[Rfam]
RNA sequence: CCCCUGUCCGCGUCGGGGUUAUGAUGCGGUUCCUCCCUGUUGGACCUGGCCGGGCAUUGCCCGGCCUCUUUU
Number, nucleotide and partner (000 for none) at each position: 001c000002c000003c000004c000005u000006g000007u000008c029009c028010g027011c026012g025013u024014c023015g000016g000017g000018g000019u000020u000021a000022u000023g014024a013025u012026g011027c010028g009029g008030u000031u000032c000033c000034u000035c000036c000037c000038u000039g000040u000041u000042g000043g000044a000045c000046c000047u000048g066049g065050c064051c063052g062053g061054g060055c059056a000057u000058u000059g055060c054061c053062c052063g051064g050065c049066c048067u000068c000069u000070u000071u000072u000
Singlet oxygen resistance RNA X: a 72-nucleotide sequence from Fuscibacter oryzae. The base pairs follow the family's consensus structure. From the family's description: SorX (RSs2461)like SorY is a singlet oxygen induced sRNA that counteracts oxidative stress by targeting mRNA for a transporter in Rhodobacter. It also has an impact on resistance against organic hydroperoxides. It targets SD sequence of potA mRNA via an aSD sequence. The aSD sequence and some neighbouring nucleotides are identical to the one of SorY (targets takP mRNA). NCBI's taxonomy places the organism under Bacteria, Pseudomonadota, Alphaproteobacteria, Paracoccaceae, Fuscibacter.